[Rfam]
RNA sequence: ACUUGGAGUGAUGAAAACUUCACCUUAGGUGGAUGCAACAAACCGUUUUGGUUGUUACUGCACCUGCCAAUGCUGGGGUUUGUCAUAGUUACACUGACCAUGU
Dot-bracket structure: ((.(((...........................................................................................))).))
The family of this 103-nucleotide RNA sequence from Crypturellus undulatus is "Small nucleolar RNA SNORD46". Clan: SNORD46 clan. Rfam links the family to the GO terms RNA processing and nucleolus. A search with the family's covariance model found it, with a score of 56 bits. The family has 5 seed sequences and 723 matches in Rfam 15.1. U40 is a C/D box small nucleolar RNA, also known as snoZ153 in plants. The human sequence has also been annotated in the sequence databases as U46. U40 is encoded in intron 2 of the ribosomal protein S8 gene in human, and is hypothesised to guide methylation of 2'-O-ribose residues on 28S ribosomal RNA. This family represents vertebrate U40.